Record summary: SAM riboswitch aptamer (S box leader): a 96-nucleotide sequence from Spiroplasma diminutum.

RNA sequence: UUCUUAUGAAGAACUACUGAGAGAAAACAACUCAAUGAAGUGGUAGCAACCUAUUUAAAUUAGGUGCUUAAAUUAAGGGGAAACCAACUAUGAGAU
Dot-bracket structure: .(((((((....(((((...(((.....[[)))......)))))((((.((.((....))..))))))....]]..((.....))...))))))).
The organism belongs to Spiroplasma diminutum, within Bacteria.